The record is a 96-nucleotide sequence from Treponema vincentii, which matches "TD-2 RNA" in Rfam. Pairs were carried over by alignment from the consensus structure, which is taken from published work. The source organism's lineage runs through Bacteria, Pseudomonadati, Treponematales, Treponemataceae and Treponema vincentii.
[Rfam]
RNA sequence: GGAGGCAUGGAUGCCGCUCGUAUUAAGCAGAAUCAAGUUUGACAAUGGUCAAACUUGUGUUCAGCGAAGUACACGGACGUACUUCGCUGAACGAGC
Numbered sequence: 001g002g003a004g005g006c007a008u009g010g011a012u013g014c015c016g017c018u019c020g021u022a023u024u025a026a027g028c029a030g031a032a033u034c035a036a037g038u039u040u041g042a043c044a045a046u047g048g049u050c051a052a053a054c055u056u057g058u059g060u061u062c063a064g065c066g067a068a069g070u071a072c073a074c075g076g077a078c079g080u081a082c083u084u085c086g087c088u089g090a091a092c093g094a095g096c
Stems, first nucleotide, its partner, number of pairs: 001018002004015003034057010059092014
It scores 59 bits against the family's covariance model. Rfam 15.1 lists 310 matches to the family in 11 species.